[Rfam]
The record is an 81-nucleotide sequence from Nicotiana attenuata, which matches "Small nucleolar RNA Z155" in Rfam. The source organism's lineage runs through Eukaryota, Tracheophyta, Euphyllophyta, Solanaceae and Nicotiana. It scores 55 bits against the family's covariance model. It is annotated as a C/D-box small nucleolar RNA. On this family, see Chen et al., Nucleic Acids Res 2003: "The high diversity of snoRNAs in plants: identification and comparative study of 120 snoRNA genes from Oryza sativa".
RNA sequence: CAUUGAAGUGAUGAUAUCCGAUUCAGGAAAGUUUAUAUGUCGAUCCCAAAAAUCAUCCAGACUACAAUUAUCUGAUCAAUG
Number, nucleotide and partner (000 for none) at each position: 001c081002a080003u079004u078005g077006a076007a000008g000009u000010g000011a000012u000013g000014a000015u000016a000017u000018c000019c000020g000021a000022u000023u000024c000025a000026g000027g000028a000029a000030a000031g000032u000033u000034u000035a000036u000037a000038u000039g000040u000041c000042g000043a000044u000045c000046c000047c000048a000049a000050a000051a000052a000053u000054c000055a000056u000057c000058c000059a000060g000061a000062c000063u000064a000065c000066a000067a000068u000069u000070a000071u000072c000073u000074g000075a000076u006077c005078a004079a003080u002081g001